[Rfam]
RNA sequence: GGGGCCGCGGGCCGUAAAAAGACCAAAGAACUUCCGGGAAAAACCUACCCAACCAACCAAACCUCGUCCUGAUCACUCGACUGGGUGAAACCGGGCGGCACGGCUGGCGUGGCGGUGGUUCGGGCAGGCAGUCUCGGCUCCGAGGCGAUACGUCGGCUCACCCACCCCACACAUGCAUCGGCCCCCGCCGGGACUGGCAUCCCAAUGCGAGGGCCUGACCAAAGAGGAAGAAAGACCCUUCCCU
Numbered sequence: 001g002g003g004g005c006c007g008c009g010g011g012c013c014g015u016a017a018a019a020a021g022a023c024c025a026a027a028g029a030a031c032u033u034c035c036g037g038g039a040a041a042a043a044c045c046u047a048c049c050c051a052a053c054c055a056a057c058c059a060a061a062c063c064u065c066g067u068c069c070u071g072a073u074c075a076c077u078c079g080a081c082u083g084g085g086u087g088a089a090a091c092c093g094g095g096c097g098g099c100a101c102g103g104c105u106g107g108c109g110u111g112g113c114g115g116u117g118g119u120u121c122g123g124g125c126a127g128g129c130a131g132u133c134u135c136g137g138c139u140c141c142g143a144g145g146c147g148a149u150a151c152g153u154c155g156g157c158u159c160a161c162c163c164a165c166c167c168c169a170c171a172c173a174u175g176c177a178u179c180g181g182c183c184c185c186c187g188c189c190g191g192g193a194c195u196g197g198c199a200u201c202c203c204a205a206u207g208c209g210a211g212g213g214c215c216u217g218a219c220c221a222a223a224g225a226g227g228a229a230g231a232a233a234g235a236c237c238c239u240u241c242c243c244u
Stems, first nucleotide, its partner, number of pairs: 007220001013066002016064001073088006103157009180215005186209003190203004226242005

Shown here is a 244-nucleotide RNA sequence, a member of the family "Streptomyces sRNA 4677". On this family, see Hindra et al., PLoS One 2014: "Complex intra-operonic dynamics mediated by a small RNA in Streptomyces coelicolor". About the family: Located in the intergenic region between anti-sigma factor SCO4677 gene and a putative regulatory protein gene SCO4676. scr4677 expression requires the SCO4677 activity and scr4677 sRNA itself seem to affect the levels of the SCO4676-associated transcripts. A search with the family's covariance model found it, with a score of 89 bits.